[Rfam]
RNA sequence: GGUGGGCUGGCAGAGUGGUCGAAUGCGGCGGUCUUGAAAACCGUUGACGGUUUAUCCCGUCCCGGGGUUCGAAUCCCUGGCCCACCG
Numbered sequence: 001g002g003u004g005g006g007c008u009g010g011c012a013g014a015g016u017g018g019u020c021g022a023a024u025g026c027g028g029c030g031g032u033c034u035u036g037a038a039a040a041c042c043g044u045u046g047a048c049g050g051u052u053u054a055u056c057c058c059g060u061c062c063c064g065g066g067g068u069u070c071g072a073a074u075c076c077c078u079g080g081c082c083c084a085c086c087g
Stems, first nucleotide, its partner, number of pairs: 001086007010026003028044005063079005